[Rfam]
RNA: Archaeal large subunit ribosomal RNA, nucleotides 943 to 1395
RNA sequence: CCUUCCGAAAUGCGUCUUAGCGCAGCCUCCCCAGAGGCAGUUUGCGGGGUAGAGUCACUGAUUAGAGGCUCAAGGCGAAAGCCUUGGGAAUCUAGUCAAACUCCGAACCUGCAGACACCUGAGAAGGGGGGAGUGGGUCACUCGGCGUAAGGUUGGGUGGCAAUAGGGGAACAACCCCAACUUGGGUUAAGGCCCCAAAAUGCCUGCUAAGUGCAAAUCUUGAAGGGCGUCCUCAGCCACAGACAGCGGGAAGGUGGGCCCAGCAGCAGCCAUCCUCUAAGGAGUGCGUAACAGCUCACCCGCCGAGGCUGAGGGCCUCCAAGACUGGUCGGGGCUUAAGCAGGCUGCCGAGACCCAAGGGAUGUAGCCUAAUGGGUUACAUCCGGUAGGAAGGCGCUGUGAUUGGGCAGAAGGUGGGCCGAGAGGUCCACUGGACCGAUCACAGGUGCAGAU
Numbered sequence: 001c002c003u004u005c006c007g008a009a010a011u012g013c014g015u016c017u018u019a020g021c022g023c024a025g026c027c028u029c030c031c032c033a034g035a036g037g038c039a040g041u042u043u044g045c046g047g048g049g050u051a052g053a054g055u056c057a058c059u060g061a062u063u064a065g066a067g068g069c070u071c072a073a074g075g076c077g078a079a080a081g082c083c084u085u086g087g088g089a090a091u092c093u094a095g096u097c098a099a100a101c102u103c104c105g106a107a108c109c110u111g112c113a114g115a116c117a118c119c120u121g122a123g124a125a126g127g128g129g130g131g132a133g134u135g136g137g138u139c140a141c142u143c144g145g146c147g148u149a150a151g152g153u154u155g156g157g158u159g160g161c162a163a164u165a166g167g168g169g170a171a172c173a174a175c176c177c178c179a180a181c182u183u184g185g186g187u188u189a190a191g192g193c194c195c196c197a198a199a200a201u202g203c204c205u206g207c208u209a210a211g212u213g214c215a216a217a218u219c220u221u222g223a224a225g226g227g228c229g230u231c232c233u234c235a236g237c238c239a240c241a242g243a244c245a246g247c248g249g250g251a252a253g254g255u256g257g258g259c260c261c262a263g264c265a266g267c268a269g270c271c272a273u274c275c276u277c278u279a280a281g282g283a284g285u286g287c288g289u290a291a292c293a294g295c296u297c298a299c300c301c302g303c304c305g306a307g308g309c310u311g312a313g314g315g316c317c318u319c320c321a322a323g324a325c326u327g328g329u330c331g332g333g334g335c336u337u338a339a340g341c342a343g344g345c346u347g348c349c350g351a352g353a354c355c356c357a358a359g360g361g362a363u364g365u366a367g368c369c370u371a372a373u374g375g376g377u378u379a380c381a382u383c384c385g386g387u388a389g390g391a392a393g394g395c396g397c398u399g400u401g402a403u404u405g406g407g408c409a410g411a412a413g414g415u416g417g418g419c420c421g422a423g424a425g426g427u428c429c430a431c432u433g434g435a436c437c438g439a440u441c442a443c444a445g446g447u448g449c450a451g452a453u
Stems, first nucleotide, its partner, number of pairs: 001394006011024005026133001027131006036119002040116008052104001053102002060097007069088001071086006137161009166177003181359007191349003200346001202345006225319003229316010246303005252276003257271003277281001282297001286295002360384002364380005395448001397445010413432008